[Rfam]
RNA sequence: AGUCCGAUCGUGCCGCCCCGUGCGGCAGGAGCCGGGGACCCACCGAAAACCUGGGGUGAAUCGGUCCGACUGCCUUCCAGGGCAAGGACCGUAGGGCAACCCUUCCGAACCACCCGCCCGAACCCGACAGCUAACCCGGUAGGCGGAACGUGGAAGGAGU
Numbered sequence: 001a002g003u004c005c006g007a008u009c010g011u012g013c014c015g016c017c018c019c020g021u022g023c024g025g026c027a028g029g030a031g032c033c034g035g036g037g038a039c040c041c042a043c044c045g046a047a048a049a050c051c052u053g054g055g056g057u058g059a060a061u062c063g064g065u066c067c068g069a070c071u072g073c074c075u076u077c078c079a080g081g082g083c084a085a086g087g088a089c090c091g092u093a094g095g096g097c098a099a100c101c102c103u104u105c106c107g108a109a110c111c112a113c114c115c116g117c118c119c120g121a122a123c124c125c126g127a128c129a130g131c132u133a134a135c136c137c138g139g140u141a142g143g144c145g146g147a148a149c150g151u152g153g154a155a156g157g158a159g160u
Base pairs, nucleotide, nucleotide: 003030004029005028031140032139033138034137035136036135041053042052054125055124056123062091063090064089065088066087067086094119095118096117097116
Annotation
c-di-AMP riboswitch aptamer (ydaO/yuaA leader): a 160-nucleotide RNA sequence from Streptomyces lacrimifluminis. It scores 70 bits against the family's covariance model. Taxonomically the source falls in Streptomyces (Bacteria, Bacillati, Actinomycetota, Actinomycetes). From the family's description: This family represents a conserved RNA structure found upstream of the ydaO and yuaA genes in Bacillus subtilis and related genes in other bacteria.